[Rfam]
RNA sequence: AAUCUCAUCAAGAUUUUCUUAUGUAUAGGCUUGAGAAUAAGGCUCAGGUGUUUCUACCCAAGCAACCGUAAAUUGCUGGACUACAUAACCUUCAAUAAGGGCG
Dot-bracket structure: ..................(((((((...(((((((.......)))))))........((.(((((.......)))))))..)))))))...............
Numbered sequence: 001a002a003u004c005u006c007a008u009c010a011a012g013a014u015u016u017u018c019u020u021a022u023g024u025a026u027a028g029g030c031u032u033g034a035g036a037a038u039a040a041g042g043c044u045c046a047g048g049u050g051u052u053u054c055u056a057c058c059c060a061a062g063c064a065a066c067c068g069u070a071a072a073u074u075g076c077u078g079g080a081c082u083a084c085a086u087a088a089c090c091u092u093c094a095a096u097a098a099g100g101g102c103g
Stems, first nucleotide, its partner, number of pairs: 019088007029049007058079002061077005